[Rfam]
RNA sequence: GCCGGUCCUCGGUAGUGGCCCCCGGGCAACGACAGCCCCGGGUGCUUCGAUCGAAGACCGGC
Numbered sequence: 001g002c003c004g005g006u007c008c009u010c011g012g013u014a015g016u017g018g019c020c021c022c023c024g025g026g027c028a029a030c031g032a033c034a035g036c037c038c039c040g041g042g043u044g045c046u047u048c049g050a051u052c053g054a055a056g057a058c059c060g061g062c
Stems, first nucleotide, its partner, number of pairs: 001062007009054005017046003021042006027035001
Dot-bracket structure: (((((((.(((((...(((.(((((((.......).)))))).)))...))))).)))))))
RNA: Actino-pnp RNA